Shown here is a 162-nucleotide RNA sequence from Rhizopus arrhizus, a member of the family "small nucleolar RNA snR35". Rfam classes the family as an H/ACA-box small nucleolar RNA. The match comes from Rfam's covariance-model search (67 bits). Rfam 15.1 lists 75 matches to the family in 66 species. The source organism's lineage runs through Eukaryota, Opisthokonta, Mucorales, Rhizopodaceae and Rhizopus. Pairs were carried over by alignment from the consensus structure, which was predicted with RNAalifold.
RNA sequence: UCUGUGCGGCGAUUACCCUACAACUUGUAGUGUUACUCGCGAGUUUUUCCUUAUGAGCUUGUUUGAGUGUCAACCCAGGUUAAGAAAGAAAGAAUGUCUUAACGCCCUAUUCUGUUAUUUUGCUAUAAACAGAUUAACAGAGGGCUGGUGAUUCUUACAUUU
Numbered sequence: 001u002c003u004g005u006g007c008g009g010c011g012a013u014u015a016c017c018c019u020a021c022a023a024c025u026u027g028u029a030g031u032g033u034u035a036c037u038c039g040c041g042a043g044u045u046u047u048u049c050c051u052u053a054u055g056a057g058c059u060u061g062u063u064u065g066a067g068u069g070u071c072a073a074c075c076c077a078g079g080u081u082a083a084g085a086a087a088g089a090a091a092g093a094a095u096g097u098c099u100u101a102a103c104g105c106c107c108u109a110u111u112c113u114g115u116u117a118u119u120u121u122g123c124u125a126u127a128a129a130c131a132g133a134u135u136a137a138c139a140g141a142g143g144g145c146u147g148g149u150g151a152u153u154c155u156u157a158c159a160u161u162u
Stems, first nucleotide, its partner, number of pairs: 022081006035068005043058004090156006108143001110142008119133002